[Rfam]
RNA sequence: ACUCAUGACACUUCACAACGGAUCGUCCGGCACGUACCUGCCGGUGGAGGGAAUCACCA
Numbered sequence: 001a002c003u004c005a006u007g008a009c010a011c012u013u014c015a016c017a018a019c020g021g022a023u024c025g026u027c028c029g030g031c032a033c034g035u036a037c038c039u040g041c042c043g044g045u046g047g048a049g050g051g052a053a054u055c056a057c058c059a
Stems, first nucleotide, its partner, number of pairs: 009051001011049005027044006